[Rfam]
RNA sequence: GGGAGGAGCCCUUCUUGGGCGUUUCCUCCCAAACUGCCCUCCUGAGCUUCGGCUCGGGAGGGCCUUUUUGUGUUUUGG
Numbered sequence: 001g002g003g004a005g006g007a008g009c010c011c012u013u014c015u016u017g018g019g020c021g022u023u024u025c026c027u028c029c030c031a032a033a034c035u036g037c038c039c040u041c042c043u044g045a046g047c048u049u050c051g052g053c054u055c056g057g058g059a060g061g062g063c064c065u066u067u068u069u070g071u072g073u074u075u076u077g078g
Stems, first nucleotide, its partner, number of pairs: 008020004036063011
RNA: Makes More Granules Regulator RNA (mmgR)